[Rfam]
RNA sequence: UGGGGCUGAGGUAGUAGAUUGAAUAGUUGUGGGGUUGUGAAACCUCUUUGAGAUAACUAUACAAUCUACUGUCUUUCCCAA
Numbered sequence: 001u002g003g004g005g006c007u008g009a010g011g012u013a014g015u016a017g018a019u020u021g022a023a024u025a026g027u028u029g030u031g032g033g034g035u036u037g038u039g040a041a042a043c044c045u046c047u048u049u050g051a052g053a054u055a056a057c058u059a060u061a062c063a064a065u066c067u068a069c070u071g072u073c074u075u076u077c078c079c080a081a
Stems, first nucleotide, its partner, number of pairs: 001081001003079003008075014023060005032046003
Shown here is an 81-nucleotide sequence from Mastacembelus armatus, a member of the family "let-7 microRNA precursor family". The base pairs follow the family's consensus structure, which was predicted with RNAalifold. It scores 68 bits against the family's covariance model. On this family, see Rougvie, Nat Rev Genet 2001: "Control of developmental timing in animals". The family is grouped with related families in Rfam's "let-7 microRNA precursor clan". Its family is annotated with RISC complex and miRNA-mediated post-transcriptional gene silencing in the Gene Ontology. The source organism's lineage runs through Eukaryota, Opisthokonta, Chordata, Synbranchiformes and Mastacembelus.